[Rfam]
RNA sequence: GUGCCUCAAACUAAUGAGUAAGGAAAACCAAUCAGCCUUGCUAAUCGCUUGGCAGUAUUGGCUUCUAGGCAGGGGGGCGUGUCCCGCGCCCCUUGAAGCUCAAAUUUUUGCAAGGGCACAGGUCGUCCCCUCCUCCUCCGCGUGGGUGGCGUUCGGCCGAGCGAACCGGCGCCUACUUUGCGUCCGGCUAGCGAGGAUCUCUGGGUGCCAUCCC
Numbered sequence: 001g002u003g004c005c006u007c008a009a010a011c012u013a014a015u016g017a018g019u020a021a022g023g024a025a026a027a028c029c030a031a032u033c034a035g036c037c038u039u040g041c042u043a044a045u046c047g048c049u050u051g052g053c054a055g056u057a058u059u060g061g062c063u064u065c066u067a068g069g070c071a072g073g074g075g076g077g078c079g080u081g082u083c084c085c086g087c088g089c090c091c092c093u094u095g096a097a098g099c100u101c102a103a104a105u106u107u108u109u110g111c112a113a114g115g116g117c118a119c120a121g122g123u124c125g126u127c128c129c130c131u132c133c134u135c136c137u138c139c140g141c142g143u144g145g146g147u148g149g150c151g152u153u154c155g156g157c158c159g160a161g162c163g164a165a166c167c168g169g170c171g172c173c174u175a176c177u178u179u180g181c182g183u184c185c186g187g188c189u190a191g192c193g194a195g196g197a198u199c200u201c202u203g204g205g206u207g208c209c210a211u212c213c214c
Base pairs, nucleotide, nucleotide: 004023005022006021008019033055035053036052037051040048061099062098063097064096065095144213145212146211147210148209149208150207151206152205153204154203157196158195161192162191164189168184169183170182171181172180